RNA sequence: GCCCCGGUAGCUCAGUCGGUAGAGCAAAGGACUGAAAAUCCUUGUGUCGACAGUUCGAUUCUGUCCUGGGGCA
Numbered sequence: 001g002c003c004c005c006g007g008u009a010g011c012u013c014a015g016u017c018g019g020u021a022g023a024g025c026a027a028a029g030g031a032c033u034g035a036a037a038a039u040c041c042u043u044g045u046g047u048c049g050a051c052a053g054u055u056c057g058a059u060u061c062u063g064u065c066c067u068g069g070g071g072c073a
Base pairs, nucleotide, nucleotide: 001072002071003070004069005068006067007066010025011024012023013022027043028042029041030040031039049065050064051063052062053061